[Rfam]
RNA sequence: AUGCACUCAAUUCCGCCUAAGUGCUGCCCACGUCCUAUGGGCAACGGCGGAAUGUCACCAUCCUGGUUC
Numbered sequence: 001a002u003g004c005a006c007u008c009a010a011u012u013c014c015g016c017c018u019a020a021g022u023g024c025u026g027c028c029c030a031c032g033u034c035c036u037a038u039g040g041g042c043a044a045c046g047g048c049g050g051a052a053u054g055u056c057a058c059c060a061u062c063c064u065g066g067u068u069c
Base pairs, nucleotide, nucleotide: 011052012051013050014049015048016047017046027041028040029039030038057067058066059065

This 69-nucleotide sequence from Evansella caseinilytica belongs to the Rfam family "Bacillaceae-1 RNA". Rfam 15.1 lists 5,721 matches to the family in 247 species. The family's RNA type in Rfam is small RNA. The organism belongs to Evansella, within Bacteria.